[Rfam]
The record is a 266-nucleotide RNA sequence from Paenibacillus flagellatus, which matches "Bacterial large signal recognition particle RNA" in Rfam.
RNA sequence: CCGUGCUAGACGGGGAGGUAGCGGUGCCCUGUACCCGCAAUCCGCUAUAGCGGGGUUGAAUUCCUGUUUUCGGUCUUGUCGAUGUGGGGUCUGACUUUUACACGAAGUGUUGACGGUCGGGUCCUCCGCAAUGGACGCUUGUGAACCCGGUCAGGUCCGGAAGGAAGCAGCCGUAAGCAAGAUGGUUCAUGUGCCGGAGGAGUGCCUGACCCGAGCUAACCGGUAAGGGUUCCGCCCGGAUCGCAAGGUCAACGGCAGGUGCACGG
Number, nucleotide and partner (000 for none) at each position: 001c266002c265003g264004u263005g262006c261007u000008a000009g057010a056011c055012g030013g029014g028015g027016a000017g025018g000019u023020a000021g000022c000023g019024g000025u017026g000027c015028c014029c013030u012031g000032u000033a000034c054035c053036c052037g051038c050039a000040a000041u000042c000043c000044g000045c000046u000047a000048u000049a000050g038051c037052g036053g035054g034055g011056u010057u009058g000059a000060a000061u000062u000063c259064c258065u257066g256067u255068u254069u000070u000071c000072g250073g249074u248075c247076u246077u000078g000079u000080c243081g242082a241083u240084g000085u238086g237087g236088g235089g000090u000091c000092u000093g230094a000095c000096u228097u227098u226099u225100a224101c223102a000103c000104g220105a000106a217107g216108u215109g000110u000111u000112g000113a000114c000115g211116g210117u209118c208119g207120g206121g205122u204123c200124c199125u198126c197127c196128g195129c191130a190131a000132u189133g188134g187135a186136c185137g000138c181139u180140u179141g178142u177143g000144a000145a000146c000147c000148c173149g172150g171151u170152c000153a000154g000155g000156u165157c164158c163159g000160g000161a000162a000163g158164g157165a156166a000167g000168c000169a000170g151171c150172c149173g148174u000175a000176a000177g142178c141179a140180a139181g138182a000183u000184g000185g136186u135187u134188c133189a132190u130191g129192u000193g000194c000195c128196g127197g126198a125199g124200g123201a000202g000203u000204g122205c121206c120207u119208g118209a117210c116211c115212c000213g000214a000215g108216c107217u106218a000219a000220c104221c000222g000223g101224u100225a099226a098227g097228g096229g000230u093231u000232c000233c000234g000235c088236c087237c086238g085239g000240a083241u082242c081243g080244c000245a000246a076247g075248g074249u073250c072251a000252a000253c000254g068255g067256c066257a065258g064259g063260u000261g006262c005263a004264c003265g002266g001

It scores 215 bits against the family's covariance model. Pairs were carried over by alignment from the consensus structure, which is taken from published work. From the family's description: The signal recognition particle (SRP) is a universally conserved ribonucleoprotein involved in the co-translational targeting of proteins to membranes. The organism belongs to Paenibacillus, within Bacteria.